A member of the RNA family "Small nucleolar RNA SNORD66" from Pseudonaja textilis, 81 nucleotides long. About the family: snoRNA HBII-142 is part of the C/D family of snoRNAs. By type it is a C/D-box small nucleolar RNA. Lineage of the source: Eukaryota > Craniata > Sarcopterygii > Squamata > Pseudonaja.
[Rfam]
RNA sequence: CUGCAUGAUGAACUCUGAAUUAGUGCCAUCGUGUCUGGGCCACUGAUGCUCUGUGAUGGAACCGAGGAACUGAUCUGGCAG
Number, nucleotide and partner (000 for none) at each position: 001c081002u080003g079004c078005a000006u000007g000008a000009u000010g000011a000012a000013c000014u000015c000016u000017g000018a000019a000020u000021u000022a000023g000024u000025g000026c000027c000028a000029u000030c000031g000032u000033g000034u000035c000036u000037g000038g000039g000040c000041c000042a000043c000044u000045g000046a000047u000048g000049c000050u000051c000052u000053g000054u000055g000056a000057u000058g000059g000060a000061a000062c000063c000064g000065a000066g000067g000068a000069a000070c000071u000072g000073a000074u000075c000076u000077g000078g004079c003080a002081g001